[Rfam]
RNA sequence: CCCAGCGGUAGUCAGCUGUUCAGUGCUUACCAAUGCCUGUGAUAGUGUUACGCUGCUGGCAGAUGAAGAUAUAGCCAUUAUAUUCUAGAUGCACAUUGGUACCGUUCUGGUUUUAUGUGACUCAAGUUUCAGGCUAUAUCUUGCUCCCUUGAGAGUGCGCCUUGACCUACUUUGGUCAUUUGGUGCUAGUCUGGAAGCAAACAAA
Numbered sequence: 001c002c003c004a005g006c007g008g009u010a011g012u013c014a015g016c017u018g019u020u021c022a023g024u025g026c027u028u029a030c031c032a033a034u035g036c037c038u039g040u041g042a043u044a045g046u047g048u049u050a051c052g053c054u055g056c057u058g059g060c061a062g063a064u065g066a067a068g069a070u071a072u073a074g075c076c077a078u079u080a081u082a083u084u085c086u087a088g089a090u091g092c093a094c095a096u097u098g099g100u101a102c103c104g105u106u107c108u109g110g111u112u113u114u115a116u117g118u119g120a121c122u123c124a125a126g127u128u129u130c131a132g133g134c135u136a137u138a139u140c141u142u143g144c145u146c147c148c149u150u151g152a153g154a155g156u157g158c159g160c161c162u163u164g165a166c167c168u169a170c171u172u173u174g175g176u177c178a179u180u181u182g183g184u185g186c187u188a189g190u191c192u193g194g195a196a197g198c199a200a201a202c203a204a205a
Base pairs, nucleotide, nucleotide: 002059003058004057005056006055007054008053009052011051012050015046016045017044018043019042020041021039022038023037025036026035069139070138071137072136073135074134075133076132082129085126086125089122092119093118094117096115098113101111102110103109141200142199143198144197145196147194148193157186158185159184161182163178164177165176166175167174

A member of the RNA family "Small nucleolar RNA SNORA74" from Xenopus laevis, 205 nucleotides long. Rfam describes the family as follows. U19 belongs to the H/ACA class of snoRNAs. snoRNAs bind a number of proteins (including dyskerin, Gar1p and Nop10p in the case of the H/ACA class) to form snoRNP complexes. It scores 103 bits against the family's covariance model. On this family, see Bortolin and Kiss, RNA 1998: "Human U19 intron-encoded snoRNA is processed from a long primary transcript that possesses little potential for protein coding". The family is grouped with related families in Rfam's "SNORA74 clan". The base pairs follow the family's consensus structure, which was predicted with PFOLD.